[Rfam]
Rfam assigns this 60-nucleotide sequence to the family "Transposase-1 RNA".
RNA sequence: UGUUAGGAGAUUACCUCUGUCAUUACCUGCUUUUUGCAGAUAUGGGAAUGUAAUUGAUGA
Numbered sequence: 001u002g003u004u005a006g007g008a009g010a011u012u013a014c015c016u017c018u019g020u021c022a023u024u025a026c027c028u029g030c031u032u033u034u035u036g037c038a039g040a041u042a043u044g045g046g047a048a049u050g051u052a053a054u055u056g057a058u059g060a
Base pairs, nucleotide, nucleotide: 009055010054011053012052013051014050020045021044022043023042027039028038029037

Pairs were carried over by alignment from the consensus structure, which is taken from published work.